[Rfam]
RNA sequence: GUUCCCAAUGAUGUUUAUCAUUCUUUACCAUGCUAAUGCUGAGAUACUUUGAUGAAUGUUCAAUGUGUAUCCUGAGGGAACU
Numbered sequence: 001g002u003u004c005c006c007a008a009u010g011a012u013g014u015u016u017a018u019c020a021u022u023c024u025u026u027a028c029c030a031u032g033c034u035a036a037u038g039c040u041g042a043g044a045u046a047c048u049u050u051g052a053u054g055a056a057u058g059u060u061c062a063a064u065g066u067g068u069a070u071c072c073u074g075a076g077g078g079a080a081c082u
Base pairs, nucleotide, nucleotide: 001081002080003079004078005077
Small nucleolar RNA snoR53Y: an 82-nucleotide RNA sequence from Zingiber officinale. Clan: snoR53 clan. The match comes from Rfam's covariance-model search (59 bits). The base pairs follow the family's consensus structure, which was predicted with WAR. Its family is annotated with RNA processing and nucleolus in the Gene Ontology. Rfam classes the family as a C/D-box small nucleolar RNA.